mir-218 microRNA precursor family: a 76-nucleotide RNA sequence from Esox lucius.
[Rfam]
RNA sequence: CAGGACACCAUUGUGCUUGAUCUAACCAUGCAGUGCUUCUCCUGUACAUGGUUUUGCCAAGCACUUUGGAGGCUUG
Number, nucleotide and partner (000 for none) at each position: 001c076002a075003g074004g073005a000006c071007a000008c069009c068010a000011u000012u000013g064014u063015g062016c061017u060018u059019g058020a000021u000022c000023u000024a053025a052026c051027c050028a049029u048030g047031c000032a000033g000034u000035g000036c000037u000038u000039c000040u000041c000042c000043u000044g000045u000046a000047c030048a029049u028050g027051g026052u025053u024054u000055u000056g000057c000058c019059a018060a017061g016062c015063a014064c013065u000066u000067u000068g009069g008070a000071g006072g000073c004074u003075u002076g001
A reference for the family is Chen et al. (2005), "The developmental miRNA profiles of zebrafish as determined by small RNA cloning", Genes Dev. A search with the family's covariance model found it, with a score of 64 bits.